[Rfam]
RNA sequence: UGAUGCCAGGGUCAAAAGGUCUAAGCCCACAUGAGCUUGCUCAUAGGUGGGUGAAAGACCUUAGGACCCGCCCCGAUAUGAGCAUAAAAGUGGGAUGAUAAUCCCACGAUAUGCGAAUAUUGGGUAGGGUGCUAUGUGCCAGUGGCACA
Numbered sequence: 001u002g003a004u005g006c007c008a009g010g011g012u013c014a015a016a017a018g019g020u021c022u023a024a025g026c027c028c029a030c031a032u033g034a035g036c037u038u039g040c041u042c043a044u045a046g047g048u049g050g051g052u053g054a055a056a057g058a059c060c061u062u063a064g065g066a067c068c069c070g071c072c073c074c075g076a077u078a079u080g081a082g083c084a085u086a087a088a089a090g091u092g093g094g095a096u097g098a099u100a101a102u103c104c105c106a107c108g109a110u111a112u113g114c115g116a117a118u119a120u121u122g123g124g125u126a127g128g129g130u131g132c133u134a135u136g137u138g139c140c141a142g143u144g145g146c147a148c149a
Base pairs, nucleotide, nucleotide: 001149002148004147005146006145007144010068011067012066013065016062017061018060019059020058021057022056026051027050028049029048030047031044032043033042034041035040072124073123074122075121076120077119078118079117082114083113084112085111090107091106092105093104094103095102096101127140128139129137130136

This 149-nucleotide RNA sequence belongs to the Rfam family "Clostridiales-1 RNA".
It is one of the family's seed sequences.